[Rfam]
RNA sequence: GCAUAUGCAUUCAUGUAUGCAUAUGCAUGUGUCUGCAUGUAUGCAUGUGUAUGCAUGUAUGCAUGUGUAUGCAUGUAUGCAUGUGUAUGCAUGUGUAUGCAUGCAUGUAUGCAUGUGUAUGCAUGCAUGUAUGCAUAUGCAUUCAUGUAUGCAUAUGCAUUCAUGUAUGCAUAUGCAUGCAUGCACAUGCAUGUAUGCAUA
Numbered sequence: 001g002c003a004u005a006u007g008c009a010u011u012c013a014u015g016u017a018u019g020c021a022u023a024u025g026c027a028u029g030u031g032u033c034u035g036c037a038u039g040u041a042u043g044c045a046u047g048u049g050u051a052u053g054c055a056u057g058u059a060u061g062c063a064u065g066u067g068u069a070u071g072c073a074u075g076u077a078u079g080c081a082u083g084u085g086u087a088u089g090c091a092u093g094u095g096u097a098u099g100c101a102u103g104c105a106u107g108u109a110u111g112c113a114u115g116u117g118u119a120u121g122c123a124u125g126c127a128u129g130u131a132u133g134c135a136u137a138u139g140c141a142u143u144c145a146u147g148u149a150u151g152c153a154u155a156u157g158c159a160u161u162c163a164u165g166u167a168u169g170c171a172u173a174u175g176c177a178u179g180c181a182u183g184c185a186c187a188u189g190c191a192u193g194u195a196u197g198c199a200u201a
Base pairs, nucleotide, nucleotide: 004201005200006199007198008197009196010195014191015190016189024181025180026179027178028177029176034105035104036103037102039100041098043096044095045094046093047092048091049090050089051088052087053086054085063076064075065074066073067072107120108119109118110117123150124149125148126147127146128145152175153174154173155172157170158169159168160167